[Rfam]
Nucleotides: 243
Base pairs, nucleotide, nucleotide: 020125021124022123023122024121025120134165135164136163137162138161142154143153144152145151166184167183168182169181188233189232190231191230194228202219203218204217205216206215207214208213
Number, partner (000 for none) and nucleotide at each position: 001000g002000a003000a004000g005000u006000u007000a008000c009000a010000c011000a012000a013000g014000c015000g016000c017000c018000a019000g020125a021124g022123c023122u024121u025120g026000a027000g028000a029000c030000u031000g032000c033000g034000c035000g036000g037000g038000a039000a040000c041000g042000g043000c044000u045000a046000u047000g048000u049000u050000g051000u052000g053000a054000a055000a056000g057000a058000g059000a060000a061000g062000u063000u064000g065000c066000c067000u068000u069000g070000a071000u072000u073000a074000c075000g076000a077000g078000g079000c080000u081000a082000a083000c084000u085000g086000a087000u088000u089000u090000u091000c092000u093000u094000u095000u096000u097000c098000a099000u100000a101000g102000a103000u104000u105000g106000g107000g108000c109000c110000a111000u112000c113000g114000g115000c116000a117000g118000a119000g120025c121024a122023a123022g124021c125020u126000g127000a128000c129000g130000a131000g132000g133000u134165g135164g136163a137162g138161g139000u140000g141000u142154u143153c144152g145151a146000a147000u148000u149000g150000u151145u152144c153143g154142g155000c156000g157000g158000g159000g160000a161138c162137c163136u164135c165134c166184c167183g168182g169181u170000a171000a172000u173000c174000u175000g176000c177000a178000c179000c180000a181169a182168c183167c184166g185000u186000a187000a188233g189232c190231c191230g192000u193000a194228u195000c196000g197000g198000a199000a200000a201000a202219u203218g204217a205216g206215u207214g208213g209000g210000c211000g212000a213208c214207c215206g216205u217204u218203c219202a220000u221000a222000c223000a224000a225000c226000g227000u228194a229000c230191c231190g232189g233188c234000g235000g236000g237000u238000g239000c240000u241000a242000u243000c
glmS glucosamine-6-phosphate activated ribozyme aptamer: a 243-nucleotide RNA from Paenibacillus uliginis. Pairs were carried over by alignment from the consensus structure, which is taken from published work. Rfam describes the family as follows. This entry contains a glucosamine-6-phosphate activated ribozyme that is found in the mRNA for GlmS. GlmS is an enzyme that uses fructose-6-phosphate and glutamine to generate glucosamine-6-phosphate. The ribozyme catalyses self cleavage of the glmS mRNA that is thought to regulate GlmS activity. For this family Rfam cites "Control of gene expression by a natural metabolite-responsive ribozyme" (Winkler et al., Nature, 2004). Gene Ontology terms of the family: regulation of gene expression and catalytic activity. By type it is a riboswitch.